Rfam assigns this 117-nucleotide sequence from Parahoeflea phototrophica to the family "Alphaproteobacterial ar15".
Rfam's curators put it in the seed alignment.
A reference for the family is Caswell et al. (2012), "Identification of two small regulatory RNAs linked to virulence in Brucella abortus 2308", Mol Microbiol.
The family's RNA type in Rfam is small RNA.
The family is grouped with related families in Rfam's "suhB sRNA clan".
Rfam 15.1 lists 316 matches to the family in 177 species.
The organism belongs to Parahoeflea phototrophica, within Bacteria.

RNA sequence: AGCUGAUGCACCUUUGGUGGCCUACUCCUCCCAGUGCCACCGCAUGAGCUGUUCCCCUCUGGAGGUUUUUGACCUUCAUACCUAUUGGGCCCGAGAGAAAUCUCGCGGCCCAUUUUU
Numbered sequence: 001a002g003c004u005g006a007u008g009c010a011c012c013u014u015u016g017g018u019g020g021c022c023u024a025c026u027c028c029u030c031c032c033a034g035u036g037c038c039a040c041c042g043c044a045u046g047a048g049c050u051g052u053u054c055c056c057c058u059c060u061g062g063a064g065g066u067u068u069u070u071g072a073c074c075u076u077c078a079u080a081c082c083u084a085u086u087g088g089g090c091c092c093g094a095g096a097g098a099a100a101u102c103u104c105g106c107g108g109c110c111c112a113u114u115u116u117u
Base pairs, nucleotide, nucleotide: 001050002049003048004047007044008043009042017040018039019038020037060078061077062076063075064074065073066072086112087111088110089109090108091107092105093104094103095102